[Rfam]
RNA sequence: UCCACCUUAACGGGUGGUUAAGCUUUCGGGACUAUGAAUGAAACAUCCAGAUUCCUUCUGGAUGUCGAGUGGCUCCUGUCCACUCUGUUUGACGCCUCCCUGUUUACCCACUCCGCAAAGCCGCCUUCGGGCGGCUUUUUUUUG
Numbered sequence: 001u002c003c004a005c006c007u008u009a010a011c012g013g014g015u016g017g018u019u020a021a022g023c024u025u026u027c028g029g030g031a032c033u034a035u036g037a038a039u040g041a042a043a044c045a046u047c048c049a050g051a052u053u054c055c056u057u058c059u060g061g062a063u064g065u066c067g068a069g070u071g072g073c074u075c076c077u078g079u080c081c082a083c084u085c086u087g088u089u090u091g092a093c094g095c096c097u098c099c100c101u102g103u104u105u106a107c108c109c110a111c112u113c114c115g116c117a118a119a120g121c122c123g124c125c126u127u128c129g130g131g132c133g134g135c136u137u138u139u140u141u142u143u144g
Base pairs, nucleotide, nucleotide: 001041002040005012019034020033023030024029046062047061048060049059067085068084069083070082071081072080091104092103093102094101117138118137119136120135121134122133123132124131125130
RNA: Alphaproteobacterial sRNA BjrC1505
Organism: Alsobacter metallidurans